[Rfam]
RNA sequence: CGUACCAAGUAGAAACACCCGUUUCUCACCUGUAGCGACGCAUCAAGCAGUUGGCAGGUUAAUCAUGUCACACAUUAUAUGUGUAUGAGAGAAGAGCGGGCAUUCUAUGCUCGCUCUUUUUGCUUGGA
Numbered sequence: 001c002g003u004a005c006c007a008a009g010u011a012g013a014a015a016c017a018c019c020c021g022u023u024u025c026u027c028a029c030c031u032g033u034a035g036c037g038a039c040g041c042a043u044c045a046a047g048c049a050g051u052u053g054g055c056a057g058g059u060u061a062a063u064c065a066u067g068u069c070a071c072a073c074a075u076u077a078u079a080u081g082u083g084u085a086u087g088a089g090a091g092a093a094g095a096g097c098g099g100g101c102a103u104u105c106u107a108u109g110c111u112c113g114c115u116c117u118u119u120u121u122g123c124u125u126g127g128a
Stems, first nucleotide, its partner, number of pairs: 011026006028059003037052003040048002095115009
A member of the RNA family "Ribosomal protein L20 leader" from Staphylococcus haemolyticus, 128 nucleotides long.
Gene Ontology term of the family: regulation of gene expression.